[Rfam]
RNA sequence: UAAUUUAAAUAAGUAGUUCUUAAUAUAAGCUUGAUAAUAGGGUUCAAGCGUUUCUAGCAAAGGCCGCAAAUCUUUGACUAUUAGGAAUUAUGGUGAAUUA
Numbered sequence: 001u002a003a004u005u006u007a008a009a010u011a012a013g014u015a016g017u018u019c020u021u022a023a024u025a026u027a028a029g030c031u032u033g034a035u036a037a038u039a040g041g042g043u044u045c046a047a048g049c050g051u052u053u054c055u056a057g058c059a060a061a062g063g064c065c066g067c068a069a070a071u072c073u074u075u076g077a078c079u080a081u082u083a084g085g086a087a088u089u090a091u092g093g094u095g096a097a098u099u100a
Stems, first nucleotide, its partner, number of pairs: 018086008029049006058076006